[Rfam]
RNA sequence: AAUUCUGUUCAUAAGAACAAAAAGAAACAAAUUUAUUCUAUAAUCGAUAAGUACCAAUAUGUCAUGGG
Numbered sequence: 001a002a003u004u005c006u007g008u009u010c011a012u013a014a015g016a017a018c019a020a021a022a023a024g025a026a027a028c029a030a031a032u033u034u035a036u037u038c039u040a041u042a043a044u045c046g047a048u049a050a051g052u053a054c055c056a057a058u059a060u061g062u063c064a065u066g067g068g
Stems, first nucleotide, its partner, number of pairs: 003022002006019005044067002051060003
Record summary
A member of the RNA family "Plastid-clpP 5UTR RNA" from Capsicum baccatum, 68 nucleotides long. By type it is a cis-regulatory element. Pairs were carried over by alignment from the consensus structure, which was predicted with LocARNA. NCBI's taxonomy places the organism under Eukaryota, Euphyllophyta, asterids, Solanales, Capsicum. It scores 77 bits against the family's covariance model. About the family: Plastid clpP is a non-coding RNA (ncRNA) recognised in plastids. Rfam 15.1 lists 2,105 matches to the family in 526 species.